[Rfam]
RNA sequence: AUCCCUUCAUCUCCUUAUCAUUUCCGCUGUCCAGACGGCUAUUAUUGUGACCUGGACGGAGAACUGAUAAGGGCGCGUGGGGAU
Dot-bracket structure: ...........(((((((((.(((..(..((......................))..)..))).)))))))))...........
RNA: mir-184 microRNA precursor family
Organism: Leptotrombidium deliense